Rfam assigns this 76-nucleotide RNA sequence from Nelumbo nucifera to the family "Small nucleolar RNA R66". snoR66 is a C/D box small nucleolar RNA, which acts as a methylation guide for 18S ribosomal RNA in plants. snoR66 has been alternatively named snoZ269 in rice. The family's RNA type in Rfam is C/D-box small nucleolar RNA. A search with the family's covariance model found it, with a score of 58 bits.
Nucleotides: 076
Stems, first nucleotide, its partner, number of pairs: 001075003032043001033040001
Number, partner (000 for none) and nucleotide at each position: 001075u002074c003073c004000u005000a006000u007000g008000a009000u010000g011000g012000c013000a014000u015000g016000g017000a018000a019000u020000c021000u022000u023000u024000g025000a026000u027000a028000c029000c030000u031000g032043a033040u034000c035000u036000u037000c038000a039000u040033a041000u042000u043032u044000g045000a046000u047000g048000a049000a050000g051000a052000a053000c054000a055000c056000a057000a058000g059000u060000g061000u062000u063000u064000u065000u066000u067000g068000u069000c070000u071000g072000a073003g074002g075001a076000u